[Rfam]
RNA sequence: ACUUUGAGUAGAGGUUGCACUGUCUAAGAGUAUGCGGCGGGAGCUUGAACCCGAUGAUCGCCGCAAAAAGGAGCCAGUGCCGAAGUAGCCAAGCCGUCAGGCAAAGCUGCUGGGGACAUUUCAAACAGGAAUGUCACUGCCAUAGUCUGAGCAAACUAUGGAGCGCUACUGAAAGG
Numbered sequence: 001a002c003u004u005u006g007a008g009u010a011g012a013g014g015u016u017g018c019a020c021u022g023u024c025u026a027a028g029a030g031u032a033u034g035c036g037g038c039g040g041g042a043g044c045u046u047g048a049a050c051c052c053g054a055u056g057a058u059c060g061c062c063g064c065a066a067a068a069a070g071g072a073g074c075c076a077g078u079g080c081c082g083a084a085g086u087a088g089c090c091a092a093g094c095c096g097u098c099a100g101g102c103a104a105a106g107c108u109g110c111u112g113g114g115g116a117c118a119u120u121u122c123a124a125a126c127a128g129g130a131a132u133g134u135c136a137c138u139g140c141c142a143u144a145g146u147c148u149g150a151g152c153a154a155a156c157u158a159u160g161g162a163g164c165g166c167u168a169c170u171g172a173a174a175g176g
Base pairs, nucleotide, nucleotide: 007170008169009168010167011166017080018079019078020077021076022075024073025072033065034064035063036062037061038060039059040058084111085110086109087108088107089106093102094101095100112138113137115135116134117133118132119131120130121129122128140161141160142159143158144157145156146155